[Rfam]
RNA sequence: UUCCACAGCUACUGGUCUGCAGCUGUUAAUUGUAGCAGCUGCGGCAUUCCACUGUGGGAAAGAAAUUGUUACACAAUUAAAUACCUCUUUCUUAGCCAAAAAGAAAGUGGGCAUGUGUGUGACAGACACAA
Numbered sequence: 001u002u003c004c005a006c007a008g009c010u011a012c013u014g015g016u017c018u019g020c021a022g023c024u025g026u027u028a029a030u031u032g033u034a035g036c037a038g039c040u041g042c043g044g045c046a047u048u049c050c051a052c053u054g055u056g057g058g059a060a061a062g063a064a065a066u067u068g069u070u071a072c073a074c075a076a077u078u079a080a081a082u083a084c085c086u087c088u089u090u091c092u093u094a095g096c097c098a099a100a101a102a103g104a105a106a107g108u109g110g111g112c113a114u115g116u117g118u119g120u121g122a123c124a125g126a127c128a129c130a131a
Stems, first nucleotide, its partner, number of pairs: 003057004017044009071120005084111003087107006
The family of this 131-nucleotide RNA sequence from Chinchilla lanigera is "Small nucleolar RNA SNORA41". About the family: ACA41 is a member of the H/ACA class of snoRNA that guide the sites of modification of uridines to pseudouridines. On this family, see Huttenhofer et al., EMBO J 2001: "RNomics: an experimental approach that identifies 201 candidates for novel, small, non-messenger RNAs in mouse". By type it is an H/ACA-box small nucleolar RNA. Gene Ontology terms of the family: RNA processing and nucleolus. The organism belongs to Chinchilla, within Eukaryota.